[Rfam]
RNA sequence: AACCGGGUCCGGGCCCCUCUGAUAGUCUCUGACGAGACUAUGAUGUCGGACUCUUCCA
Number, nucleotide and partner (000 for none) at each position: 001a000002a000003c000004c000005g000006g052007g051008u050009c049010c048011g047012g046013g000014c000015c000016c000017c000018u000019c000020u000021g000022a041023u040024a039025g038026u037027c036028u035029c034030u000031g000032a000033c000034g029035a028036g027037a026038c025039u024040a023041u022042g000043a000044u000045g000046u012047c011048g010049g009050a008051c007052u006053c000054u000055u000056c000057c000058a000
The record is a 58-nucleotide RNA sequence from Allobosea sp. Leaf344, which matches "terC RNA" in Rfam. By type it is a cis-regulatory element. The family's consensus secondary structure is taken from published work. It scores 55 bits against the family's covariance model. The source organism's lineage runs through Bacteria, Pseudomonadota, Hyphomicrobiales, Alloboseaceae and Allobosea.